RNA sequence: AAACCAUGAGGUGGUAAAUUUCGUUGCUGCCACACGCCUACACGGCCAAAGAGAUGCAGGAGAGGCGACGCCUGCCGUGGUUC
Numbered sequence: 001a002a003a004c005c006a007u008g009a010g011g012u013g014g015u016a017a018a019u020u021u022c023g024u025u026g027c028u029g030c031c032a033c034a035c036g037c038c039u040a041c042a043c044g045g046c047c048a049a050a051g052a053g054a055u056g057c058a059g060g061a062g063a064g065g066c067g068a069c070g071c072c073u074g075c076c077g078u079g080g081u082u083c
Stems, first nucleotide, its partner, number of pairs: 002082007011033005023069005035051001036046003056075005
A member of the RNA family "skipping-rope RNA", 83 nucleotides long. Rfam's curators put it in the seed alignment. The family's consensus secondary structure is taken from published work. By type it is a small RNA.